The record is a 166-nucleotide RNA sequence from Hordeum vulgare, which matches "MIR2118 microRNA precursor family" in Rfam.
Lineage of the source: Eukaryota > Streptophyta > Embryophyta > Tracheophyta > Hordeum vulgare.
RNA sequence: GAUAGGAAGAGGAAGAAAGAGAGAGUGUAAGAGAAGUAGGAAUGAGAACAUCGAGGAAAGCUAAUUGGUUCUUCACCUCUUGUUUUGAUGUGAUGAUUCACUUUGGUAUUUCCCGAUGCCUCUUAUUCCUAUUAUUCUUAGGCGCUCCUUUCUCUUCCUUUUUGUU
Dot-bracket structure: ........(((((.(((...(((..(.((((((.(.(((((((((((.(((.(.(((((.................................................)))))).)))..))))))))))).).)))))).)..))).))).))))).........
Rfam links the family to the GO terms miRNA-mediated post-transcriptional gene silencing and RISC complex. It scores 122 bits against the family's covariance model. The family has 7 seed sequences and 2,377 matches in Rfam 15.1. A reference for the family is Xue et al. (2009), "Characterization and expression profiles of miRNAs in rice seeds", Nucleic Acids Res.